[Rfam]
RNA: small nucleolar RNA snoR134
Organism: Ipomoea nil
RNA sequence: UUGCACGUAGCCUCCCGGGCAAUUCUGAGAUACAGUGUGAAGAACGAGCCCCAAAUGCUCGUGCCAAAAAGACGUCGCUGUCUGUGUUGCAGUCUAGCCAUUGUACCACUUUCUAUCCAUAGCUUUUCUGUGUCAAUUCGACGGCUACAUUU
Numbered sequence: 001u002u003g004c005a006c007g008u009a010g011c012c013u014c015c016c017g018g019g020c021a022a023u024u025c026u027g028a029g030a031u032a033c034a035g036u037g038u039g040a041a042g043a044a045c046g047a048g049c050c051c052c053a054a055a056u057g058c059u060c061g062u063g064c065c066a067a068a069a070a071g072a073c074g075u076c077g078c079u080g081u082c083u084g085u086g087u088u089g090c091a092g093u094c095u096a097g098c099c100a101u102u103g104u105a106c107c108a109c110u111u112u113c114u115a116u117c118c119a120u121a122g123c124u125u126u127u128c129u130g131u132g133u134c135a136a137u138u139c140g141a142c143g144g145c146u147a148c149a150u151u152u
Base pairs, nucleotide, nucleotide: 003064004063005062006061007060010058011057017051018050019049020048024043025042026041077145078144079143080142081141082140085135086134088132089131090130091129092128097123098122